[Rfam]
Nucleotides: 350
Base pairs, nucleotide, nucleotide: 001350002349003348004347009345010344011343012342013341014340015339016338018336019335020334035059036058037057038056039055044049060101061100062099063098064097065096066095068093069092070091071090102106114329115328116327117326118325119324120323121321122320125139126138127137142177143176144175145174146173147172148171149170150167154163155162156161180316181315182314183313185246186245187244190243191242192239193238194237195236196235199234200233201232210223211222212221213220214219247265248264249263250262251261252260266270276303286302287301288300289299290298291297
Number, partner (000 for none) and nucleotide at each position: 001350u002349g003348a004347g005000a006000g007000a008000a009345c010344u011343c012342g013341g014340g015339a016338g017000a018336a019335g020334g021000a022000a023000c024000u025000c026000g027000g028000c029000a030000a031000a032000u033000u034000g035059a036058u037057a038056c039055c040000g041000u042000a043000a044049c045000u046000u047000c048000g049044g050000g051000a052000g053000a054000a055039g056038g057037u058036a059035u060101g061100c062099c063098c064097u065096c066095u067000a068093a069092g070091g071090u072000u073000a074000a075000g076000g077000a078000c079000u080000u081000g082000c083000u084000c085000c086000g087000u088000a089000a090071g091070c092069c093068u094000c095066g096065g097064a098063g099062g100061g101060u102106c103000g104000c105000a106102g107000a108000g109000a110000a111000u112000a113000g114329g115328u116327g117326g118325c119324u120323g121321c122320g123000a124000c125139u126138g127137u128000u129000u130000a131000u132000u133000a134000a135000a136000a137127a138126c139125a140000c141000a142177g143176c144175a145174c146173u147172c148171u149170g150167c151000u152000a153000a154163c155162a156161c157000g158000a159000a160000a161156g162155u163154g164000g165000a166000c167150g168000u169000a170149u171148a172147g173146g174145g175144u176143g177142u178000g179000a180316c181315g182314c183313c184000u185246g186245c187244c188000c189000g190243g191242u192239g193238c194237u195236g196235g197000a198000a199234g200233g201232u202000u203000a204000a205000u206000u207000g208000a209000a210223g211222a212221u213220g214219u215000g216000a217000g218000a219214g220213c221212a222211u223210c224000g225000g226000a227000u228000c229000g230000a231000a232201g233200c234199c235196c236195c237194a238193g239192u240000a241000a242191a243190c244187g245186g246185c247265g248264g249263c250262c251261g252260u253000a254000a255000c256000u257000a258000u259000a260252a261251c262250g263249g264248u265247c266270c267000u268000a269000a270266g271000g272000u273000a274000g275000c276303g277000a278000a279000a280000u281000u282000c283000c284000u285000u286302g287301u288300c289299g290298g291297g292000u293000a294000a295000g296000u297291u298290c299289c300288g301287a302286c303276c304000c305000g306000c307000a308000c309000g310000a311000a312000u313183g314182g315181c316180g317000u318000a319000a320122c321121g322000a323120u324119g325118g326117c327116c328115a329114c330000a331000c332000u333000g334020u335019c336018u337000c338016c339015u340014c341013c342012c343011g344010a345009g346000a347004c348003u349002c350001a
Bacterial large subunit ribosomal RNA: a 350-nucleotide part of an RNA from Morococcus cerebrosus. The match comes from Rfam's covariance-model search (2865 bits). The base pairs follow the family's consensus structure, which is taken from published work. Rfam links the family to the GO terms ribosome and structural constituent of ribosome.